[Rfam]
RNA: FMN riboswitch aptamer (RFN element)
Organism: Clostridium acetobutylicum
RNA sequence: GAUGUUCUUCAGGGAUGGGUGAAAUUCCCAAUCGGCGGUAAAGCCCGCAAGCCAUUUGGCAGAUCCGGUUAAACUCCGGGGCCGACAGUUAAAGUCUGGAUGAAAGAAGAAAUAG
Numbered sequence: 001g002a003u004g005u006u007c008u009u010c011a012g013g014g015a016u017g018g019g020u021g022a023a024a025u026u027c028c029c030a031a032u033c034g035g036c037g038g039u040a041a042a043g044c045c046c047g048c049a050a051g052c053c054a055u056u057u058g059g060c061a062g063a064u065c066c067g068g069u070u071a072a073a074c075u076c077c078g079g080g081g082c083c084g085a086c087a088g089u090u091a092a093a094g095u096c097u098g099g100a101u102g103a104a105a106g107a108a109g110a111a112a113u114a115g
Stems, first nucleotide, its partner, number of pairs: 005111006017029003031095002033084002035048004043082002051060003064080005086098003